This 153-nucleotide sequence from filamentous cyanobacterium CCP5 belongs to the Rfam family "Ribosomal protein L10 leader". NCBI's taxonomy places the organism under Bacteria, Bacillati, Cyanobacteriota. Rfam classes the family as a cis-regulatory leader. Rfam's curators write: This family is a putative r-protein leader autoregulatory structure found in B. subtilis and other low-GC Gram-positive bacteria. The family's consensus secondary structure was predicted with CMfinder.
[Rfam]
RNA sequence: UUCUAAUUCAAUAAGCAGCCGUAGACCGCAGGGGCUUAACCAGCUUAAUUAACCUGCCGAGGUUUGCAUGUCUCUAAGAUUCUUUUGGUUGUAUCCAAAAGGUUUUAGACUUAUGCAGCCCUGGCAAAUAUCCGGGGCUUUUUUUAUGGCUGC
Numbered sequence: 001u002u003c004u005a006a007u008u009c010a011a012u013a014a015g016c017a018g019c020c021g022u023a024g025a026c027c028g029c030a031g032g033g034g035c036u037u038a039a040c041c042a043g044c045u046u047a048a049u050u051a052a053c054c055u056g057c058c059g060a061g062g063u064u065u066g067c068a069u070g071u072c073u074c075u076a077a078g079a080u081u082c083u084u085u086u087g088g089u090u091g092u093a094u095c096c097a098a099a100a101g102g103u104u105u106u107a108g109a110c111u112u113a114u115g116c117a118g119c120c121c122u123g124g125c126a127a128a129u130a131u132c133c134g135g136g137g138c139u140u141u142u143u144u145u146a147u148g149g150c151u152g153c
Base pairs, nucleotide, nucleotide: 028057029056030055031054032053034044035043036042118138119137120136121135122134123133124132